[Rfam]
Notes: Shown here is a 587-nucleotide part of an RNA from Staphylothermus hellenicus, a member of the family "Archaeal large subunit ribosomal RNA".
RNA sequence: CCCCCCGCUGGGCGAUAAGACCCCGUGGAGCUUCACCGCAGCCUGGCGUUGGCUUCCGGGCUGCGGCGCGUAGCGUAGGUGGGAGCCGGUGAACCCGCCCCUCCGGGGGUGGGGGAGGCGCCAAUGAAACACCACCCACCGCAGCCCGGAGGCCUUACCCCCGGGGAGAUCCCGGGGGGACAGCGUCAGGUGGGCGGUUUGGCUGGGGCGGCACGCCCGCGAAAAGGUAACACGGGCGCCCAAAGGUCGGCUCAGGCGGGUCAGAGCUCCGCCGUAGAGUGCAAGGGCAAAAGCCGGCUUGACCGGACCCCGGAACAUAACGGGUCCGGCCGGGAAACCGCGGCCUAGCGAACGCUCGUGCCCUCCUCGGUGGGGGCCGGGCAUGACAGAAAAGUUACCCCGGGGAUAACAGAGUCGUCGCGGGCGAGAGCUCCCAUCGACCCCGCGGUUUGCUACAUCGAUGUCGGCUCUUCCCAUCCUGGGGGUGCAGCAGCCCCCAAGGGUGGGGCUGCCCGCCCAUUAAAGGGGAACGUGAGCUGGGUUUAGACCGUCGUGAGACAGGUCGGACUCUACCCGCGGGGGGUGUG
Numbered sequence: 001c002c003c004c005c006c007g008c009u010g011g012g013c014g015a016u017a018a019g020a021c022c023c024c025g026u027g028g029a030g031c032u033u034c035a036c037c038g039c040a041g042c043c044u045g046g047c048g049u050u051g052g053c054u055u056c057c058g059g060g061c062u063g064c065g066g067c068g069c070g071u072a073g074c075g076u077a078g079g080u081g082g083g084a085g086c087c088g089g090u091g092a093a094c095c096c097g098c099c100c101c102u103c104c105g106g107g108g109g110u111g112g113g114g115g116a117g118g119c120g121c122c123a124a125u126g127a128a129a130c131a132c133c134a135c136c137c138a139c140c141g142c143a144g145c146c147c148g149g150a151g152g153c154c155u156u157a158c159c160c161c162c163g164g165g166g167a168g169a170u171c172c173c174g175g176g177g178g179g180a181c182a183g184c185g186u187c188a189g190g191u192g193g194g195c196g197g198u199u200u201g202g203c204u205g206g207g208g209c210g211g212c213a214c215g216c217c218c219g220c221g222a223a224a225a226g227g228u229a230a231c232a233c234g235g236g237c238g239c240c241c242a243a244a245g246g247u248c249g250g251c252u253c254a255g256g257c258g259g260g261u262c263a264g265a266g267c268u269c270c271g272c273c274g275u276a277g278a279g280u281g282c283a284a285g286g287g288c289a290a291a292a293g294c295c296g297g298c299u300u301g302a303c304c305g306g307a308c309c310c311c312g313g314a315a316c317a318u319a320a321c322g323g324g325u326c327c328g329g330c331c332g333g334g335a336a337a338c339c340g341c342g343g344c345c346u347a348g349c350g351a352a353c354g355c356u357c358g359u360g361c362c363c364u365c366c367u368c369g370g371u372g373g374g375g376g377c378c379g380g381g382c383a384u385g386a387c388a389g390a391a392a393a394g395u396u397a398c399c400c401c402g403g404g405g406a407u408a409a410c411a412g413a414g415u416c417g418u419c420g421c422g423g424g425c426g427a428g429a430g431c432u433c434c435c436a437u438c439g440a441c442c443c444c445g446c447g448g449u450u451u452g453c454u455a456c457a458u459c460g461a462u463g464u465c466g467g468c469u470c471u472u473c474c475c476a477u478c479c480u481g482g483g484g485g486u487g488c489a490g491c492a493g494c495c496c497c498c499a500a501g502g503g504u505g506g507g508g509c510u511g512c513c514c515g516c517c518c519a520u521u522a523a524a525g526g527g528g529a530a531c532g533u534g535a536g537c538u539g540g541g542u543u544u545a546g547a548c549c550g551u552c553g554u555g556a557g558a559c560a561g562g563u564c565g566g567a568c569u570c571u572a573c574c575c576g577c578g579g580g581g582g583g584u585g586u587g
Stems, first nucleotide, its partner, number of pairs: 001583008010575003014570002022404004027400002029396005035198004042190007051154016068137001078136005085119003097110005158178008201214001202212003215237005240343002246298006252278002255273006279288002303329008331340001333338001354382005360377001362376004413454003417451001418448007428438002465540001466538004470532001471529005478503002482497005506518004546564004550559003
Annotation: The source organism's lineage runs through Archaea, Desulfurococcales, Desulfurococcaceae, Staphylothermus and Staphylothermus hellenicus.